[Rfam]
RNA sequence: CUGCAGGUACGGCGAUAUGGUUCCGGACACUAUAGCAGGGAAGAUAUUUGGAUCUAUCUGUUCGCUCAGUGGGGUUCUGGUCAUUGCCCUGCCCGUCCCAGUCAUUGUCUCAAAC
Numbered sequence: 001c002u003g004c005a006g007g008u009a010c011g012g013c014g015a016u017a018u019g020g021u022u023c024c025g026g027a028c029a030c031u032a033u034a035g036c037a038g039g040g041a042a043g044a045u046a047u048u049u050g051g052a053u054c055u056a057u058c059u060g061u062u063c064g065c066u067c068a069g070u071g072g073g074g075u076u077c078u079g080g081u082c083a084u085u086g087c088c089c090u091g092c093c094c095g096u097c098c099c100a101g102u103c104a105u106u107g108u109c110u111c112a113a114a115c
Base pairs, nucleotide, nucleotide: 002114006111009108010107011106012105014103015102016101019098020097022095038078039077040076041075051063052062
About this RNA:
The record is a 115-nucleotide RNA sequence from Xenopus tropicalis, which matches "Potassium channel RNA editing signal" in Rfam. Its family is annotated with adenosine to inosine editing in the Gene Ontology. The base pairs follow the family's consensus structure, which is taken from published work. Rfam classes the family as a cis-regulatory element.